RNA sequence: AUACUUACCUGGCAGGGGAGACACCAUGAUCAGGAAGGUGGUUCACCCAGGGCGAGGCUCUGCCAUUGCACUGAGGCAGUACUGACCCUUGCGAAUUCCCCAAAUGUGGGAAUCUCGACUGCAUAAUUUCUGUUAUAAUUUCUGAUAUUUUGUCCAAUA
Numbered sequence: 001a002u003a004c005u006u007a008c009c010u011g012g013c014a015g016g017g018g019a020g021a022c023a024c025c026a027u028g029a030u031c032a033g034g035a036a037g038g039u040g041g042u043u044c045a046c047c048c049a050g051g052g053c054g055a056g057g058c059u060c061u062g063c064c065a066u067u068g069c070a071c072u073g074a075g076g077c078a079g080u081a082c083u084g085a086c087c088c089u090u091g092c093g094a095a096u097u098c099c100c101c102a103a104a105u106g107u108g109g110g111a112a113u114c115u116c117g118a119c120u121g122c123a124u125a126a127u128u129u130c131u132g133u134u135a136u137a138a139u140u141u142c143u144g145a146u147a148u149u150u151u152g153u154c155c156a157a158u159a
Stems, first nucleotide, its partner, number of pairs: 012122004016048003020044002023042005049090004054086001056083002060079005092117003095113003099109002139159001141157001144154004

This 159-nucleotide RNA from Takifugu rubripes belongs to the Rfam family "U1 spliceosomal RNA".
The family's consensus secondary structure is taken from published work.
The match comes from Rfam's covariance-model search (123 bits).